[Rfam]
RNA sequence: GAUGAGGUCUCUGGAGAAUCCCGCGAAAAGCGGGUGCCGAAGGGGCAAGGUAUGAGCCGAGAGCGAUCUUCGCUUGGUGGCACCGUACCGAAACUCUCAGGCAAAAGGACAGAGUUUUCUAU
Numbered sequence: 001g002a003u004g005a006g007g008u009c010u011c012u013g014g015a016g017a018a019u020c021c022c023g024c025g026a027a028a029a030g031c032g033g034g035u036g037c038c039g040a041a042g043g044g045g046c047a048a049g050g051u052a053u054g055a056g057c058c059g060a061g062a063g064c065g066a067u068c069u070u071c072g073c074u075u076g077g078u079g080g081c082a083c084c085g086u087a088c089c090g091a092a093a094c095u096c097u098c099a100g101g102c103a104a105a106a107g108g109a110c111a112g113a114g115u116u117u118u119c120u121a122u
Base pairs, nucleotide, nucleotide: 006117007116009114010113011112012111013110020034021033022032023031036102037101038100039098040097043096044095045094049089050088051087052086053085054084

Glycine riboswitch aptamer: a 122-nucleotide RNA from Cryptobacterium sp. CAG:338.
About the family: This family represents the bacterial glycine riboswitch.
It scores 62 bits against the family's covariance model.
Lineage of the source: Bacteria > Bacillati > Eggerthellales > Eggerthellaceae > Cryptobacterium.